[Rfam]
Notes:
A member of the RNA family "FMN riboswitch aptamer (RFN element)" from Sporosarcina sp. HYO08, 147 nucleotides long. Rfam's curators write: The RFN element is a highly conserved domain that is found frequently in the 5'-untranslated regions of prokaryotic mRNAs that encode for flavin mononucleotide (FMN) biosynthesis and transport proteins. The organism belongs to Sporosarcina, within Bacteria. Rfam links the family to the GO term FMN binding. The match comes from Rfam's covariance-model search (99 bits).
RNA sequence: CAAACUCUUCGGGGCAAGGUGAAAUUCCUUACCGGCGGUGAUCGAGCUUGGCUCGUCAGUCCGUGACCCGUCCUUCCCUUAUGGAAGGCGGUGGAGCUGGUGUAAAUCCGGCACCGACAGUGAUAGUCUGGAUGGGAGAAGUUGUUU
Numbered sequence: 001c002a003a004a005c006u007c008u009u010c011g012g013g014g015c016a017a018g019g020u021g022a023a024a025u026u027c028c029u030u031a032c033c034g035g036c037g038g039u040g041a042u043c044g045a046g047c048u049u050g051g052c053u054c055g056u057c058a059g060u061c062c063g064u065g066a067c068c069c070g071u072c073c074u075u076c077c078c079u080u081a082u083g084g085a086a087g088g089c090g091g092u093g094g095a096g097c098u099g100g101u102g103u104a105a106a107u108c109c110g111g112c113a114c115c116g117a118c119a120g121u122g123a124u125a126g127u128c129u130g131g132a133u134g135g136g137a138g139a140a141g142u143u144g145u146u147u
Stems, first nucleotide, its partner, number of pairs: 003145001007141004017029003031127002033116002035064004059114002068091004096112005118130003
Dot-bracket structure: ..(...((((......(((.......))).[[((((((....................[[))))...((((................))))....(((((.......)))))]])).(((.....]]))).......))))...)..